[Rfam]
RNA sequence: UGUCAUGUUGGACAGGCAUUCUGUAUCUCUUGAAAGAGCAUGGAUUUAUCCAUACUAGACAACAUGAAUGAAAUGAGACGUUCUCAGGGCUGCCAACCUUUCAGUUAAGGUUUUGUGGCAGUAUACUUCUUCUACAAUA
Numbered sequence: 001u002g003u004c005a006u007g008u009u010g011g012a013c014a015g016g017c018a019u020u021c022u023g024u025a026u027c028u029c030u031u032g033a034a035a036g037a038g039c040a041u042g043g044a045u046u047u048a049u050c051c052a053u054a055c056u057a058g059a060c061a062a063c064a065u066g067a068a069u070g071a072a073a074u075g076a077g078a079c080g081u082u083c084u085c086a087g088g089g090c091u092g093c094c095a096a097c098c099u100u101u102c103a104g105u106u107a108a109g110g111u112u113u114u115g116u117g118g119c120a121g122u123a124u125a126c127u128u129c130u131u132c133u134a135c136a137a138u139a
Stems, first nucleotide, its partner, number of pairs: 003067006017042003021038002024035001077132002080129001089119002093115001095112006